[Rfam]
RNA sequence: GCGCAUGCCUGAAAACUUGUAUCCUAAGCUACGUACUGGGAACCUCGUUUCGCCAUCAUUGCUUAGGGGAAAGUCCCCGGACAUUGGGCAGAGAUGUCCUGCAUACAGCGCAGAUAGUUGGGUUGCGUAGCGUAAAAAUGCUAAGACGUCCUGUGUGACAGAGCACAACGCUUGCAAUGCUCCUUCGUCAAUAUGAUAGUCAUUCAAGUGAAGUACAGGUGUACUUCUACAGAACGGGGCUCAUUCUCAGCACGCG
Numbered sequence: 001g002c003g004c005a006u007g008c009c010u011g012a013a014a015a016c017u018u019g020u021a022u023c024c025u026a027a028g029c030u031a032c033g034u035a036c037u038g039g040g041a042a043c044c045u046c047g048u049u050u051c052g053c054c055a056u057c058a059u060u061g062c063u064u065a066g067g068g069g070a071a072a073g074u075c076c077c078c079g080g081a082c083a084u085u086g087g088g089c090a091g092a093g094a095u096g097u098c099c100u101g102c103a104u105a106c107a108g109c110g111c112a113g114a115u116a117g118u119u120g121g122g123u124u125g126c127g128u129a130g131c132g133u134a135a136a137a138a139u140g141c142u143a144a145g146a147c148g149u150c151c152u153g154u155g156u157g158a159c160a161g162a163g164c165a166c167a168a169c170g171c172u173u174g175c176a177a178u179g180c181u182c183c184u185u186c187g188u189c190a191a192u193a194u195g196a197u198a199g200u201c202a203u204u205c206a207a208g209u210g211a212a213g214u215a216c217a218g219g220u221g222u223a224c225u226u227c228u229a230c231a232g233a234a235c236g237g238g239g240c241u242c243a244u245u246c247u248c249a250g251c252a253c254g255c256g
Base pairs, nucleotide, nucleotide: 002256003255004254006252007251008250011248012247015209016208017207018206019205023067024066025065026064027063028062029061038053040051041050042049072241073240075239076238077237078236087098088097089096090095099113100112101111102110104108116181117180122178123177124176125175126174127173130171131170132169133168139165140164141163148159149158150157211226212225213224214223215222216221
Record summary:
A member of the RNA family "RNase MRP" from Labeo rohita, 256 nucleotides long. A search with the family's covariance model found it, with a score of 140 bits. The family's RNA type in Rfam is ribozyme.